[Rfam]
RNA sequence: AUGUUGAGGAUUGUGACAUAGAGCACUAGCCUUUGAAAAAAUUCCGGCCAGUGCUCAUGUUACAAUUCUCACCAUU
Numbered sequence: 001a002u003g004u005u006g007a008g009g010a011u012u013g014u015g016a017c018a019u020a021g022a023g024c025a026c027u028a029g030c031c032u033u034u035g036a037a038a039a040a041a042u043u044c045c046g047g048c049c050a051g052u053g054c055u056c057a058u059g060u061u062a063c064a065a066u067u068c069u070c071a072c073c074a075u076u
Base pairs, nucleotide, nucleotide: 001075002074003073005071006070007069008068010066011065012064013063014062015061016060017059018058019057022055023054024053025052026051027050029048030047031046